[Rfam]
Nucleotides: 124
Stems, first nucleotide, its partner, number of pairs: 001124004006119022030095010041084002045080004
Number, partner (000 for none) and nucleotide at each position: 001124a002123a003122u004121a005000a006119g007118a008117g009116a010115a011114u012113g013112a014111c015110a016109a017108a018107u019106u020105a021104g022103a023102u024101u025100u026099u027098u028000c029000c030095u031094u032093c033092u034091a035090a036089u037088u038087u039086u040000u041084a042083g043000c044000a045080u046079u047078u048077u049000u050000a051000g052000u053000u054000a055000g056000a057000u058000u059000u060000u061000a062000a063000u064000u065000u066000u067000u068000u069000u070000a071000a072000g073000g074000a075000g076000g077048a078047a079046a080045a081000a082000g083042u084041u085000a086039a087038a088037a089036a090035u091034u092033a093032g094031g095030a096000a097000g098027a099026a100025a101024a102023a103022u104021c105020u106019a107018a108017u109016u110015u111014g112013u113012c114011a115010u116009u117008c118007u119006c120000c121004u122003a123002u124001u